[Rfam]
MIR828 microRNA precursor family: a 101-nucleotide RNA from Brassica carinata. A search with the family's covariance model found it, with a score of 73 bits. Rfam 15.1 lists 204 matches to the family in 134 species. A reference for the family is Rajagopalan et al. (2006), "A diverse and evolutionarily fluid set of microRNAs in Arabidopsis thaliana", Genes Dev.

RNA sequence: CGAAUGUUUCUUGCUUAAAUGAGUAUUCCAUGAAAGUGAUUCUCACUCACGCGUGAGUUGGUUUCUAUCCAUGAGAUGCUCAUCUGAGCAAGCAACGUUUG
Numbered sequence: 001c002g003a004a005u006g007u008u009u010c011u012u013g014c015u016u017a018a019a020u021g022a023g024u025a026u027u028c029c030a031u032g033a034a035a036g037u038g039a040u041u042c043u044c045a046c047u048c049a050c051g052c053g054u055g056a057g058u059u060g061g062u063u064u065c066u067a068u069c070c071a072u073g074a075g076a077u078g079c080u081c082a083u084c085u086g087a088g089c090a091a092g093c094a095a096c097g098u099u100u101g
Stems, first nucleotide, its partner, number of pairs: 004098005010092008019083009029073002